[Rfam]
RNA sequence: GGGGUUGACUGGUUUUGACAGCACGUAGAAGAGAUACGUAAGCAUGUCGAGCAUCGUAACAUUGGCUCGUAAAUCUUAAUGUUGCAACUUUUUAACUGGCGAAAAUAAUUACGCUCUUGCAGCCUAAUCGAAGUUUAGUAGAUUACGCUUAAUCCUCGUACAAGGUACGACGACAAGACAUCUCGCUGUAGGGACACGCUCUGUUCCUUGCAGUAUAUGAGGUGUAGAGAAUUCAGAGCUAGUUACCUUUGAGUCUUUCAUAGGUAGCGAAAUCCUAAAAGACUAAGGAUAUUGAUGGGUGGUUUUAUGCCGGUCUUAUCACGAAAAUUAAGAUAAAACUAAGCAUGUAGAAAGCCUAUUUGUUCCGUGUUUGGACGCGGGUUCGAUUCCCGCCAGCUCCACAA
Numbered sequence: 001g002g003g004g005u006u007g008a009c010u011g012g013u014u015u016u017g018a019c020a021g022c023a024c025g026u027a028g029a030a031g032a033g034a035u036a037c038g039u040a041a042g043c044a045u046g047u048c049g050a051g052c053a054u055c056g057u058a059a060c061a062u063u064g065g066c067u068c069g070u071a072a073a074u075c076u077u078a079a080u081g082u083u084g085c086a087a088c089u090u091u092u093u094a095a096c097u098g099g100c101g102a103a104a105a106u107a108a109u110u111a112c113g114c115u116c117u118u119g120c121a122g123c124c125u126a127a128u129c130g131a132a133g134u135u136u137a138g139u140a141g142a143u144u145a146c147g148c149u150u151a152a153u154c155c156u157c158g159u160a161c162a163a164g165g166u167a168c169g170a171c172g173a174c175a176a177g178a179c180a181u182c183u184c185g186c187u188g189u190a191g192g193g194a195c196a197c198g199c200u201c202u203g204u205u206c207c208u209u210g211c212a213g214u215a216u217a218u219g220a221g222g223u224g225u226a227g228a229g230a231a232u233u234c235a236g237a238g239c240u241a242g243u244u245a246c247c248u249u250u251g252a253g254u255c256u257u258u259c260a261u262a263g264g265u266a267g268c269g270a271a272a273u274c275c276u277a278a279a280a281g282a283c284u285a286a287g288g289a290u291a292u293u294g295a296u297g298g299g300u301g302g303u304u305u306u307a308u309g310c311c312g313g314u315c316u317u318a319u320c321a322c323g324a325a326a327a328u329u330a331a332g333a334u335a336a337a338a339c340u341a342a343g344c345a346u347g348u349a350g351a352a353a354g355c356c357u358a359u360u361u362g363u364u365c366c367g368u369g370u371u372u373g374g375a376c377g378c379g380g381g382u383u384c385g386a387u388u389c390c391c392g393c394c395a396g397c398u399c400c401a402c403a404a
Base pairs, nucleotide, nucleotide: 001400002399003398004397005396006395007394019373020372021370022369023368024367025366027364030363032361033360034359035358036357038355039354043347044346045345046344047343048069049068050067051066052065056085057084058083059082060081061080062079179224180223181222182221183220184219186213187212188211189210191208192207193206194205198239199238200237201236202235203234242268243267244266245265246264247263248262250260253284256281257280258279288320289319290318291317294315295314298311299310300309302339303338304337305336308332377393378392379391380390381389
This 404-nucleotide RNA from Balneicella halophila belongs to the Rfam family "transfer-messenger RNA".
A search with the family's covariance model found it, with a score of 160 bits.
NCBI's taxonomy places the organism under Bacteria, Pseudomonadati, Bacteroidales, Balneicellaceae, Balneicella.
Rfam classes the family as a non-coding RNA gene.